[Rfam]
RNA sequence: GUGUUUUUCAUGGUAUUAGAUUUAAGGUUAAUAACAAAGGGCGAGUCGUGAUGACUGGCCCUUUGUUAUUU
Numbered sequence: 001g002u003g004u005u006u007u008u009c010a011u012g013g014u015a016u017u018a019g020a021u022u023u024a025a026g027g028u029u030a031a032u033a034a035c036a037a038a039g040g041g042c043g044a045g046u047c048g049u050g051a052u053g054a055c056u057g058g059c060c061c062u063u064u065g066u067u068a069u070u071u
Base pairs, nucleotide, nucleotide: 041059042058044056045055046054047053
Dot-bracket structure: ........................................((.((((.....)))).))............